[Rfam]
RNA sequence: UCUUUGUGAAAGACAUGGGUAGUGAGAUGUUCCAAUCUAAAAUCAAAUUCAUCUCACUACCUUGUCUUUGACGAAGCA
Numbered sequence: 001u002c003u004u005u006g007u008g009a010a011a012g013a014c015a016u017g018g019g020u021a022g023u024g025a026g027a028u029g030u031u032c033c034a035a036u037c038u039a040a041a042a043u044c045a046a047a048u049u050c051a052u053c054u055c056a057c058u059a060c061c062u063u064g065u066c067u068u069u070g071a072c073g074a075a076g077c078a
Stems, first nucleotide, its partner, number of pairs: 009069007017062003021058009
RNA: mir-71 microRNA precursor family